Nucleotides: 065
Base pairs, nucleotide, nucleotide: 012062013024014023025048026047027046029044030043031042049061050060051059
Number, partner (000 for none) and nucleotide at each position: 001000a002000u003000a004000a005000u006000g007000a008000u009000a010000c011000u012062u013024c014023a015000a016000u017000a018000g019000u020000u021000u022000a023014u024013g025048c026047c027046g028000g029044c030043u031042c032000a033000u034000c035000u036000u037000g038000a039000a040000a041000a042031g043030a044029g045000g046027c047026g048025g049061a050060g051059g052000u053000g054000a055000g056000a057000u058000u059051c060050c061049u062012a063000u064000g065000u

Rfam assigns this 65-nucleotide RNA sequence to the family "pemK RNA". By type it is a cis-regulatory element. Pairs were carried over by alignment from the consensus structure, which is taken from published work.